A member of the RNA family "mir-3327 microRNA precursor family" from Operophtera brumata, 88 nucleotides long. Pairs were carried over by alignment from the consensus structure, which was predicted with RNAalifold. NCBI's taxonomy places the organism under Eukaryota, Allotriocarida, Amphiesmenoptera, Obtectomera, Operophtera.
[Rfam]
RNA sequence: UUAGUGUAAUGUUUCAACAACAGGAAUGUUAUGUACAGUAUACUAAUAAUUCUAUAUGUAACGUUUUUGUUGUCUUACAUUGCUCUCU
Dot-bracket structure: ..((.(((((......(((((((((((((((((((.((.............)).))))))))))))))))))).....))))).))..
Gene Ontology terms of the family: miRNA-mediated post-transcriptional gene silencing and RISC complex.